[Rfam]
RNA: Small nucleolar RNA U54
Nucleotides: 090
Stems, first nucleotide, its partner, number of pairs: 001090005
Number, partner (000 for none) and nucleotide at each position: 001090g002089g003088c004087u005086c006000a007000a008000u009000g010000a011000u012000u013000a014000c015000a016000u017000g018000c019000c020000u021000g022000a023000u024000u025000u026000u027000g028000g029000c030000a031000a032000u033000a034000u035000a036000c037000g038000c039000u040000a041000u042000a043000c044000u045000g046000a047000g048000u049000g050000a051000u052000g053000u054000g055000u056000u057000a058000u059000a060000u061000c062000a063000c064000u065000a066000a067000g068000c069000u070000g071000a072000u073000a074000a075000c076000u077000u078000u079000a080000u081000u082000a083000u084000g085000a086005g087004a088003g089002c090001u